[Rfam]
RNA sequence: UACUAAUGGAGUCCAGAAACCAUUUAAAAACGGGGUAAAUCCGAAAAACCAAACGAGUAGGAACUAA
Numbered sequence: 001u002a003c004u005a006a007u008g009g010a011g012u013c014c015a016g017a018a019a020c021c022a023u024u025u026a027a028a029a030a031c032g033g034g035g036u037a038a039a040u041c042c043g044a045a046a047a048a049c050c051a052a053a054c055g056a057g058u059a060g061g062a063a064c065u066a067a
Stems, first nucleotide, its partner, number of pairs: 006023004034050003041061002
Shown here is a 67-nucleotide RNA sequence from Tenacibaculum lutimaris, a member of the family "DUF805 RNA".